The family of this 140-nucleotide RNA from Anolis carolinensis is "Small nucleolar RNA SNORA1". The family has 29 seed sequences and 1,282 matches in Rfam 15.1. The family's consensus secondary structure was predicted with PFOLD. It scores 76 bits against the family's covariance model.
RNA sequence: UGCCUUGUUGCUGCAGUAAAUGUGGACGCACACUUUCACUUUGUGUCCCGAGUUAUGCAAUGAGGCUACAGUAAAUACAGGCUAUGCUUCCAUCACUGUACGGCAAAAUUACAUUGGUGACAAUGAGGCCUGUAAUAAGC
Numbered sequence: 001u002g003c004c005u006u007g008u009u010g011c012u013g014c015a016g017u018a019a020a021u022g023u024g025g026a027c028g029c030a031c032a033c034u035u036u037c038a039c040u041u042u043g044u045g046u047c048c049c050g051a052g053u054u055a056u057g058c059a060a061u062g063a064g065g066c067u068a069c070a071g072u073a074a075a076u077a078c079a080g081g082c083u084a085u086g087c088u089u090c091c092a093u094c095a096c097u098g099u100a101c102g103g104c105a106a107a108a109u110u111a112c113a114u115u116g117g118u119g120a121c122a123a124u125g126a127g128g129c130c131u132g133u134a135a136u137a138a139g140c
Base pairs, nucleotide, nucleotide: 002066003065004064006062007061008060024048025047026046027045028044029043077133078132079131080130081129091119092118093117094116095115